[Rfam]
RNA sequence: GAAUAUCUCGAUCGCUCUUAUUGUGGUGGGAACGCGCAUGGGCAGGAUGGUGUAACCAUCCGGCGAUAGCCACCCAUGCGCGAAAAGACAGGCUCCUCGAAGGGGCCUUUUUUUAUGCCUUCAA
Numbered sequence: 001g002a003a004u005a006u007c008u009c010g011a012u013c014g015c016u017c018u019u020a021u022u023g024u025g026g027u028g029g030g031a032a033c034g035c036g037c038a039u040g041g042g043c044a045g046g047a048u049g050g051u052g053u054a055a056c057c058a059u060c061c062g063g064c065g066a067u068a069g070c071c072a073c074c075c076a077u078g079c080g081c082g083a084a085a086a087g088a089c090a091g092g093c094u095c096c097u098c099g100a101a102g103g104g105g106c107c108u109u110u111u112u113u114u115a116u117g118c119c120u121u122c123a124a
Stems, first nucleotide, its partner, number of pairs: 007028001009026001029120002033082010045061006063070002087109001090108007